[Rfam]
RNA sequence: UGAGUCAGCUAGGCAGUCGCGAGCGCUCUUGCGUUCGAGGAACGUCCGGGCUCCACAGGGAGCAGUGGUGGGUAACGCCCACUCGGGGUGACCCGCAGGAAAGUGCCACAGAAAAGAAACCGCCAGCAAUGGUAAGGGUGAAAAGGCGAGGUAAGAGCUCACCGCAUGUCUGGUGACAGAUAUGGCAUGGUAAACCCCACUGGGAGCAAGACCAAGCAGUGCGCGUCGAGGCGUCCCGCUGAGUGCACGGGUAGGUUGCUUGAGCUCAACGGUAACGUUGAGUCUAGAUGGAUGGCUGCCGCUGACCACUUGGCCAGCACAGAACCCGGCGUAUCGGCUGACUCAUUCG
Numbered sequence: 001u002g003a004g005u006c007a008g009c010u011a012g013g014c015a016g017u018c019g020c021g022a023g024c025g026c027u028c029u030u031g032c033g034u035u036c037g038a039g040g041a042a043c044g045u046c047c048g049g050g051c052u053c054c055a056c057a058g059g060g061a062g063c064a065g066u067g068g069u070g071g072g073u074a075a076c077g078c079c080c081a082c083u084c085g086g087g088g089u090g091a092c093c094c095g096c097a098g099g100a101a102a103g104u105g106c107c108a109c110a111g112a113a114a115a116g117a118a119a120c121c122g123c124c125a126g127c128a129a130u131g132g133u134a135a136g137g138g139u140g141a142a143a144a145g146g147c148g149a150g151g152u153a154a155g156a157g158c159u160c161a162c163c164g165c166a167u168g169u170c171u172g173g174u175g176a177c178a179g180a181u182a183u184g185g186c187a188u189g190g191u192a193a194a195c196c197c198c199a200c201u202g203g204g205a206g207c208a209a210g211a212c213c214a215a216g217c218a219g220u221g222c223g224c225g226u227c228g229a230g231g232c233g234u235c236c237c238g239c240u241g242a243g244u245g246c247a248c249g250g251g252u253a254g255g256u257u258g259c260u261u262g263a264g265c266u267c268a269a270c271g272g273u274a275a276c277g278u279u280g281a282g283u284c285u286a287g288a289u290g291g292a293u294g295g296c297u298g299c300c301g302c303u304g305a306c307c308a309c310u311u312g313g314c315c316a317g318c319a320c321a322g323a324a325c326c327c328g329g330c331g332u333a334u335c336g337g338c339u340g341a342c343u344c345a346u347u348c349g
Base pairs, nucleotide, nucleotide: 001345002344003343004342005341006340007339008338009337010336011334012300013299014298015297016296017295018294020037021036022035023034024033025032026031042332043331044330046329047328048327049326050325051206052205053204054203058237059236060235061234063202064201065200066199067198068082069081070080071079072078083097084095085094086093087092098197099196103195104194105191106190107189120137121136122133123132124131125130145163146162148160149159150158164186165184166183167182168181169180170179171178172177210257211256212255213254219248220247221246222245223244224243230240231239232238264283265282266281267280268279269278270277271276
RNA: Bacterial RNase P class A
Organism: Arcanobacterium bovis